[Rfam]
Background: The record is a 97-nucleotide RNA sequence from Mycolicibacterium phlei, which matches "Guanidine-I riboswitch aptamer" in Rfam.

Nucleotides: 097
Base pairs, nucleotide, nucleotide: 008049009048010047011046012045015040016039020037021036022034023031024030025029051070052069053068054067055066056065057064072092074095078090079089080088
Number, partner (000 for none) and nucleotide at each position: 001000g002000u003000g004000a005000g006000g007000c008049g009048c010047g011046c012045c013000u014000a015040g016039g017000g018000u019000u020037c021036c022034g023031c024030c025029g026000u027000c028000a029025c030024g031023g032000g033000u034022c035000u036021g037020g038000u039016c040015c041000g042000a043000g044000a045012g046011g047010c048009g049008c050000a051070g052069g053068c054067g055066g056065a057064c058000u059000g060000c061000g062000g063000c064057g065056u066055c067054c068053g069052u070051u071000c072092c073000a074095c075000g076000g077000c078090g079089g080088g081000a082000g083000a084000a085000a086000a087000g088080c089079c090078c091000g092072g093000g094000a095074g096000a097000c
Pairs were carried over by alignment from the consensus structure.